[Rfam]
RNA sequence: CUCCAGCAUCAUGAGCCCGGAGUAAUCCGGCGCCAACCGAGCAGGAAAAGCCACGGUGGUUUAGCAUGCGGACAGUCUGUCAAAAAAAUUUCAAUUC
Number, nucleotide and partner (000 for none) at each position: 001c000002u000003c000004c000005a000006g069007c068008a067009u066010c000011a000012u000013g000014a000015g031016c000017c030018c029019g028020g027021a026022g000023u000024a000025a000026u021027c020028c019029g018030g017031c015032g060033c059034c058035a000036a000037c056038c055039g054040a000041g051042c050043a000044g000045g092046a091047a090048a089049a000050g042051c041052c000053a000054c039055g038056g037057u000058g034059g033060u032061u000062u000063a000064g000065c000066a009067u008068g007069c006070g000071g081072a080073c079074a078075g000076u000077c000078u074079g073080u072081c071082a000083a000084a000085a000086a000087a000088a000089u048090u047091u046092c045093a000094a000095u000096u000097c000

Rfam assigns this 97-nucleotide sequence from Maribellus luteus to the family "SAM-I/IV (S-adenosyl methionine) riboswitch aptamer". A search with the family's covariance model found it, with a score of 59 bits. Pairs were carried over by alignment from the consensus structure, which is taken from published work. NCBI's taxonomy places the organism under Bacteria, Pseudomonadati, Bacteroidota, Prolixibacteraceae, Maribellus.